[Rfam]
RNA sequence: CUAACAAAGUUGUGUUAGUUGCUCUGGAUAAGAGCGUCUGCUAAAUGCCUGUAA
Dot-bracket structure: ............(((....((((((.....))))))...)).)...........
Numbered sequence: 001c002u003a004a005c006a007a008a009g010u011u012g013u014g015u016u017a018g019u020u021g022c023u024c025u026g027g028a029u030a031a032g033a034g035c036g037u038c039u040g041c042u043a044a045a046u047g048c049c050u051g052u053a054a
Stems, first nucleotide, its partner, number of pairs: 013043001014041002020036006